[Rfam]
RNA sequence: AGCAGCUCUGUCAAAUUCAGUCCUUGCCUUCUCCAUGGCAAGGACUGGCCAGGUGGCUGCCACAUCACCUUCUGUGCUCCACAAGCCCCAUGUCCCCUUCCUGUGGGACCUAAGGGACAAAAUGACACCACAGACAUUG
Number, nucleotide and partner (000 for none) at each position: 001a000002g060003c059004a058005g057006c000007u000008c000009u000010g000011u000012c000013a000014a000015a000016u000017u000018c047019a046020g045021u044022c043023c042024u041025u040026g039027c038028c037029u000030u000031c000032u000033c000034c000035a000036u000037g028038g027039c026040a025041a024042g023043g022044a021045c020046u019047g018048g000049c000050c000051a000052g000053g000054u000055g000056g000057c005058u004059g003060c002061c000062a000063c000064a000065u000066c000067a000068c000069c000070u000071u000072c000073u000074g131075u130076g129077c000078u127079c000080c000081a000082c000083a000084a000085g000086c116087c115088c114089c000090a000091u000092g110093u000094c000095c000096c000097c000098u000099u000100c000101c000102u000103g000104u000105g000106g000107g000108a000109c000110c092111u000112a000113a000114g088115g087116g086117a000118c000119a000120a000121a000122a000123u000124g000125a000126c000127a078128c000129c076130a075131c074132a000133g000134a000135c000136a000137u000138u000139g000
Notes:
Rfam assigns this 139-nucleotide RNA sequence from Tricholaema leucomelas to the family "Small nucleolar RNA SNORA5". ACA5 is a member of the H/ACA class of snoRNA that guide the sites of modification of uridines to pseudouridines. Pairs were carried over by alignment from the consensus structure, which was predicted with RNAfold.